[Rfam]
RNA sequence: AGCAGGAGAGGAGGCAAGAUGUUGGCAUAGCUGAUGAACGGAGAACCUGCUAUGCCUACAUAUUGCCCUCUUUCACCUC
Numbered sequence: 001a002g003c004a005g006g007a008g009a010g011g012a013g014g015c016a017a018g019a020u021g022u023u024g025g026c027a028u029a030g031c032u033g034a035u036g037a038a039c040g041g042a043g044a045a046c047c048u049g050c051u052a053u054g055c056c057u058a059c060a061u062a063u064u065g066c067c068c069u070c071u072u073u074c075a076c077c078u079c
Stems, first nucleotide, its partner, number of pairs: 006074006013067005019061003024056008
RNA: mir-31 microRNA precursor family